[Rfam]
RNA sequence: GGGCCGGCUCCAGCUCAGCGGUUCCUUCGGUACCUUUAGGUUCCAUAAACCCUCCACUUCGGGGGUUCGAGCCCCGCGGGCGCUACCUGGCCCUUUU
Numbered sequence: 001g002g003g004c005c006g007g008c009u010c011c012a013g014c015u016c017a018g019c020g021g022u023u024c025c026u027u028c029g030g031u032a033c034c035u036u037u038a039g040g041u042u043c044c045a046u047a048a049a050c051c052c053u054c055c056a057c058u059u060c061g062g063g064g065g066u067u068c069g070a071g072c073c074c075c076g077c078g079g080g081c082g083c084u085a086c087c088u089g090g091c092c093c094u095u096u097u
Stems, first nucleotide, its partner, number of pairs: 002092006013081004018077004026071005
Vault RNA: a 97-nucleotide RNA sequence from Pelusios castaneus. Taxonomically the source falls in Pelusios (Eukaryota, Metazoa, Bilateria, Amniota). About the family: This family of RNAs are found as part of the enigmatic vault ribonucleoprotein complex. The complex consists of a major vault protein (MVP), two minor vault proteins (VPARP and TEP1), and several small untranslated RNA molecules. It has been suggested that the vault complex is involved in drug resistance. For this family Rfam cites "Evolution of Vault RNAs" (Stadler et al., Mol Biol Evol, 2009).